[Rfam]
This 264-nucleotide sequence from Nannospalax galili belongs to the Rfam family "Mason-Pfizer monkey virus packaging signal". The family's RNA type in Rfam is cis-regulatory element. The source organism's lineage runs through Eukaryota, Theria, Spalacidae, Spalacinae and Nannospalax. About the family: This family represents a group of sequences that are related to the Mason-Pfizer monkey virus (MPMV) packaging signal.

RNA sequence: UGGUGCCCAGCGUGGGGCCUGGAUACUGGGGGACAAUGUGAGGGACAUGACGAAAAGAAGAAGAGGCACACACCCACUCAAAUAGUUCGGAGACAUCGCGGUAGCCUGCUGUGACCGAGCCACCAGGUAAGUUGGUCGUUAAUCAUGGGGCAAGAAUUAAGUCAGCAUCAGAAAUAUGUAAUACAGUUAAAAGAAGCUUUACAGGCGAGAGGAGUAAAGGUUACAACUGAGGAUUUAUUUCAUUUCUUUGAUUUUAUGAAAGAC
Numbered sequence: 001u002g003g004u005g006c007c008c009a010g011c012g013u014g015g016g017g018c019c020u021g022g023a024u025a026c027u028g029g030g031g032g033a034c035a036a037u038g039u040g041a042g043g044g045a046c047a048u049g050a051c052g053a054a055a056a057g058a059a060g061a062a063g064a065g066g067c068a069c070a071c072a073c074c075c076a077c078u079c080a081a082a083u084a085g086u087u088c089g090g091a092g093a094c095a096u097c098g099c100g101g102u103a104g105c106c107u108g109c110u111g112u113g114a115c116c117g118a119g120c121c122a123c124c125a126g127g128u129a130a131g132u133u134g135g136u137c138g139u140u141a142a143u144c145a146u147g148g149g150g151c152a153a154g155a156a157u158u159a160a161g162u163c164a165g166c167a168u169c170a171g172a173a174a175u176a177u178g179u180a181a182u183a184c185a186g187u188u189a190a191a192a193g194a195a196g197c198u199u200u201a202c203a204g205g206c207g208a209g210a211g212g213a214g215u216a217a218a219g220g221u222u223a224c225a226a227c228u229g230a231g232g233a234u235u236u237a238u239u240u241c242a243u244u245u246c247u248u249u250g251a252u253u254u255u256a257u258g259a260a261a262g263a264c
Stems, first nucleotide, its partner, number of pairs: 006031003012026003036048004087127002089124002094119001097113005133153001135151002139148003158201003161197002209249006218236005